[Rfam]
A member of the RNA family "Small nucleolar RNA snoR100" from Vigna angularis, 107 nucleotides long.
Gene Ontology terms of the family: RNA processing and nucleolus.
Pairs were carried over by alignment from the consensus structure, which was predicted with WAR.
The organism belongs to Vigna angularis, within Eukaryota.
For this family Rfam cites "Experimental RNomics: identification of 140 candidates for small non-messenger RNAs in the plant Arabidopsis thaliana" (Marker et al., Curr Biol, 2002).
RNA sequence: UAAUGAAGGCAGCAUGGUUGUGUGCACGGAAAUGGAUCUUUUAGGUCAAUAUGUCUGCUCUCCCUGAUGAACGCAAUGAUGGGAGGGCCUGGUUGCGACCUACAUCU
Numbered sequence: 001u002a003a004u005g006a007a008g009g010c011a012g013c014a015u016g017g018u019u020g021u022g023u024g025c026a027c028g029g030a031a032a033u034g035g036a037u038c039u040u041u042u043a044g045g046u047c048a049a050u051a052u053g054u055c056u057g058c059u060c061u062c063c064c065u066g067a068u069g070a071a072c073g074c075a076a077u078g079a080u081g082g083g084a085g086g087g088c089c090u091g092g093u094u095g096c097g098a099c100c101u102a103c104a105u106c107u
Stems, first nucleotide, its partner, number of pairs: 012025004043090005053080003057074002